[Rfam]
Source information:
The family of this 278-nucleotide RNA from Effrenium voratum is "Metazoan signal recognition particle RNA". The family's RNA type in Rfam is non-coding RNA gene. Pairs were carried over by alignment from the consensus structure, which is taken from published work.

RNA sequence: GCUGGGGAUACUCCCCUGUAACGCUUGCGAGCUCGGCGGUGAAGCAGGCAUACUACCACUAAGUCCUAACAACUGCGUGGAUGGCCUGUCCCCCUUUAGUGCGCAGGUUGCAAGGCUGCUGCAAAGUAAUUUGCGGUAGGCUGGCAAGUGGUGACUGAGGGGCGGCUCAGGCUGGCGACAGAGCAGGCAAAACUCAGCCCUGCGCACAGAUGGGGGAGAACUGGCUUAAGCAGUUGUUAGUGACCUCUGGUGGCUUGAGGGUCUACAACUCCGCCUUU
Numbered sequence: 001g002c003u004g005g006g007g008a009u010a011c012u013c014c015c016c017u018g019u020a021a022c023g024c025u026u027g028c029g030a031g032c033u034c035g036g037c038g039g040u041g042a043a044g045c046a047g048g049c050a051u052a053c054u055a056c057c058a059c060u061a062a063g064u065c066c067u068a069a070c071a072a073c074u075g076c077g078u079g080g081a082u083g084g085c086c087u088g089u090c091c092c093c094c095u096u097u098a099g100u101g102c103g104c105a106g107g108u109u110g111c112a113a114g115g116c117u118g119c120u121g122c123a124a125a126g127u128a129a130u131u132u133g134c135g136g137u138a139g140g141c142u143g144g145c146a147a148g149u150g151g152u153g154a155c156u157g158a159g160g161g162g163c164g165g166c167u168c169a170g171g172c173u174g175g176c177g178a179c180a181g182a183g184c185a186g187g188c189a190a191a192a193c194u195c196a197g198c199c200c201u202g203c204g205c206a207c208a209g210a211u212g213g214g215g216g217a218g219a220a221c222u223g224g225c226u227u228a229a230g231c232a233g234u235u236g237u238u239a240g241u242g243a244c245c246u247c248u249g250g251u252g253g254c255u256u257g258a259g260g261g262u263c264u265a266c267a268a269c270u271c272c273g274c275c276u277u278u
Stems, first nucleotide, its partner, number of pairs: 001032003004017004022029002035275005041269001044266001046264004056253006063246001067239010078228001083226004088221002090216002093214003097210001099207009108147004113142002116139010148152001155197005165188003172181003